[Rfam]
RNA: TPP riboswitch aptamer (THI element)
RNA sequence: GGGAUCACCUCGGGGUGCCCCAUGCGGGCUGAGACGCGACAGCGGACCCGUUGAACCUGAUCCGGCUCACACCGGCGGAGGGAAGGUGCGCACCCCCUUC
Numbered sequence: 001g002g003g004a005u006c007a008c009c010u011c012g013g014g015g016u017g018c019c020c021c022a023u024g025c026g027g028g029c030u031g032a033g034a035c036g037c038g039a040c041a042g043c044g045g046a047c048c049c050g051u052u053g054a055a056c057c058u059g060a061u062c063c064g065g066c067u068c069a070c071a072c073c074g075g076c077g078g079a080g081g082g083a084a085g086g087u088g089c090g091c092a093c094c095c096c097c098u099u100c
Stems, first nucleotide, its partner, number of pairs: 006088005011050004016044001017029004036043002056081003062075004